[Rfam]
RNA sequence: UUCUUAUUUAGAGCAGGUGGAGGGACGAGCCCUAUGAUACCCGGCAACCGGUCCUAUGAUGGACACGGUGCUAAUUCUUGCAGCCUUCAGGCUGGGAAAUAAGAA
Numbered sequence: 001u002u003c004u005u006a007u008u009u010a011g012a013g014c015a016g017g018u019g020g021a022g023g024g025a026c027g028a029g030c031c032c033u034a035u036g037a038u039a040c041c042c043g044g045c046a047a048c049c050g051g052u053c054c055u056a057u058g059a060u061g062g063a064c065a066c067g068g069u070g071c072u073a074a075u076u077c078u079u080g081c082a083g084c085c086u087u088c089a090g091g092c093u094g095g096g097a098a099a100u101a102a103g104a105a
Stems, first nucleotide, its partner, number of pairs: 001105008013042001016041003022032003026080004043072004048068002050064001052062002076097001081094005
Rfam assigns this 105-nucleotide RNA sequence from Planomicrobium sp. CPCC 101110 to the family "SAM riboswitch aptamer (S box leader)".
A search with the family's covariance model found it, with a score of 84 bits.